[Rfam]
RNA sequence: ACAAUGGUACAUGCGGGAUUAUCAGAGAAGUCCAUUUGGACGCUGCCUCGAUCACAGUAUUGUCUUCCUGAUGGAGAGGUGCAAUUCCCAUGA
Numbered sequence: 001a002c003a004a005u006g007g008u009a010c011a012u013g014c015g016g017g018a019u020u021a022u023c024a025g026a027g028a029a030g031u032c033c034a035u036u037u038g039g040a041c042g043c044u045g046c047c048u049c050g051a052u053c054a055c056a057g058u059a060u061u062g063u064c065u066u067c068c069u070g071a072u073g074g075a076g077a078g079g080u081g082c083a084a085u086u087c088c089c090a091u092g093a
Base pairs, nucleotide, nucleotide: 012090013046014045015044016043047076048075049074051072052071053070078088079087